[Rfam]
The record is a 176-nucleotide RNA sequence from Paenibacillus ginsengarvi, which matches "FMN riboswitch aptamer (RFN element)" in Rfam.
Nucleotides: 176
Base pairs, nucleotide, nucleotide: 003174005172006171007170008169009168010167017029018028019027031156032155033146034145035092036091037090038089096121097120126142127141128140129139130138148159149158150157
Number, partner (000 for none) and nucleotide at each position: 001000g002000c003174g004000a005172u006171c007170c008169u009168u010167c011000g012000g013000g014000g015000c016000a017029g018028g019027g020000u021000g022000a023000g024000a025000u026000u027019c028018c029017c030000a031156a032155c033146c034145g035092g036091c037090g038089g039000u040000g041000a042000u043000u044000u045000c046000g047000g048000u049000g050000a051000g052000u053000a054000g055000c056000g057000g058000c059000g060000g061000c062000g063000a064000a065000u066000u067000g068000c069000c070000g071000u072000u073000g074000c075000c076000g077000c078000g079000c080000c081000g082000a083000a084000u085000u086000a087000g088000u089038c090037c091036g092035u093000g094000a095000c096121c097120c098000g099000u100000g101000c102000c103000g104000a105000g106000c107000a108000a109000a110000u111000a112000g113000c114000c115000c116000g117000g118000c119000c120097g121096g122000u123000g124000g125000a126142c127141c128140u129139g130138g131000u132000g133000c134000a135000a136000a137000u138130c139129c140128g141127g142126g143000a144000c145034c146033g147000a148159c149158a150157g151000u152000a153000u154000a155032g156031u157150c158149u159148g160000g161000a162000u163000g164000g165000g166000a167010g168009a169008a170007g171006g172005a173000g174003u175000c176000g

A search with the family's covariance model found it, with a score of 97 bits. The base pairs follow the family's consensus structure, which is taken from published work.